[Rfam]
RNA sequence: GUAGGCUAUGGAGAUAUGGUUCCAACUACCAUUGGGGGAAAAAUAGUGGGUUCCCUGUGUGCUAUUGCAGGUGUGUUAACCAUUGCCUUACCGGUUCCUGUCAUUGUAUCCAAU
Numbered sequence: 001g002u003a004g005g006c007u008a009u010g011g012a013g014a015u016a017u018g019g020u021u022c023c024a025a026c027u028a029c030c031a032u033u034g035g036g037g038g039a040a041a042a043a044u045a046g047u048g049g050g051u052u053c054c055c056u057g058u059g060u061g062c063u064a065u066u067g068c069a070g071g072u073g074u075g076u077u078a079a080c081c082a083u084u085g086c087c088u089u090a091c092c093g094g095u096u097c098c099u100g101u102c103a104u105u106g107u108a109u110c111c112a113a114u
Base pairs, nucleotide, nucleotide: 001114002113004111005110007108008107009106010105011104013102014101015100016099018097019096021094037077038076040074049063050062051061
Notes
Potassium channel RNA editing signal: a 114-nucleotide RNA from Otolemur garnettii. This family represents a group of sequences related to the human potassium channel Kv1.1 hairpin element which directs the efficient modification of an adenosine to inosine by an adenosine deaminase acting on RNA (ADAR). The ADAR modification causes an isoleucine/valine recoding event which lies in the ion-conducting pore of the potassium channel. It is thought that this editing event targets the process of fast inactivation and allows a more rapid recovery from inactivation at negative potentials. The family's RNA type in Rfam is cis-regulatory element. NCBI's taxonomy places the organism under Eukaryota, Opisthokonta, Mammalia, Strepsirrhini, Otolemur. Pairs were carried over by alignment from the consensus structure, which is taken from published work.